[Rfam]
RNA: mir-194 microRNA precursor family
RNA sequence: UGGAGCCAUCGAGUGUAACAGCAACUCCAUGUGGACUGCGUACCGAUUUCCAGUGGAGAUGCUGUUACUUUCGAUGGUUUC
Numbered sequence: 001u002g003g004a005g006c007c008a009u010c011g012a013g014u015g016u017a018a019c020a021g022c023a024a025c026u027c028c029a030u031g032u033g034g035a036c037u038g039c040g041u042a043c044c045g046a047u048u049u050c051c052a053g054u055g056g057a058g059a060u061g062c063u064g065u066u067a068c069u070u071u072c073g074a075u076g077g078u079u080u081c
Stems, first nucleotide, its partner, number of pairs: 009074003015068008025058006032052003